[Rfam]
Nucleotides: 252
Base pairs, nucleotide, nucleotide: 003249004248005247006246007244022230023229024228027225028224030222032220033219034218035217036216037215038214039213040212041211042210045207046206
Number, partner (000 for none) and nucleotide at each position: 001000c002000c003249c004248a005247u006246a007244a008000u009000a010000g011000u012000a013000a014000a015000a016000a017000g018000u019000c020000u021000g022230u023229u024228u025000a026000a027225g028224u029000c030222c031000c032220u033219u034218a035217a036216c037215u038214u039213u040212a041211u042210u043000u044000a045207a046206a047000g048000u049000a050000u051000c052000a053000g054000u055000u056000u057000c058000g059000u060000u061000c062000u063000u064000u065000c066000u067000g068000u069000u070000a071000a072000u073000u074000u075000a076000a077000u078000u079000c080000a081000a082000a083000g084000a085000a086000a087000g088000u089000u090000a091000a092000a093000u094000u095000u096000u097000g098000g099000u100000c101000c102000c103000u104000u105000a106000a107000c108000u109000u110000a111000u112000u113000u114000a115000a116000u117000u118000a119000g120000u121000a122000u123000u124000a125000g126000u127000u128000u129000g130000g131000u132000c133000u134000c135000u136000a137000a138000a139000c140000u141000u142000a143000a144000c145000a146000u147000u148000u149000u150000u151000u152000u153000u154000g155000a156000a157000u158000u159000a160000a161000g162000g163000g164000a165000c166000c167000u168000a169000a170000a171000c172000a173000g174000a175000c176000u177000u178000u179000u180000u181000a182000u183000u184000a185000c186000u187000u188000a189000a190000g191000g192000g193000a194000c195000c196000a197000a198000g199000c200000c201000g202000a203000u204000a205000c206046u207045u208000a209000a210042a211041a212040u213039a214038a215037a216036g217035u218034u219033a220032a221000u222030g223000g224028a225027u226000c227000a228024a229023a230022a231000g232000a233000g234000c235000a236000u237000u238000u239000a240000a241000g242000u243000c244007u245000a246006u247005a248004u249003g250000u251000u252000u
A member of the RNA family "MIR2655 microRNA precursor family" from Medicago truncatula, 252 nucleotides long.
The match comes from Rfam's covariance-model search (129 bits).
The base pairs follow the family's consensus structure, which was predicted with RNAalifold.
NCBI's taxonomy places the organism under Eukaryota, Mesangiospermae, Fabaceae, Trifolieae, Medicago.